[Rfam]
RNA: mir-9229 microRNA precursor family
Organism: Pipistrellus kuhlii
RNA sequence: GAGACACCUUAUGGGGCAAGACUUCCUUCAGUGGGGCUUUGGUCCUCACUUAGUCUGCCCCCUGAGUGUGUCUGU
Dot-bracket structure: .((((((((((.((((((.(((.....(.((((((((....)).)))))).)))))))))).)))).))))))..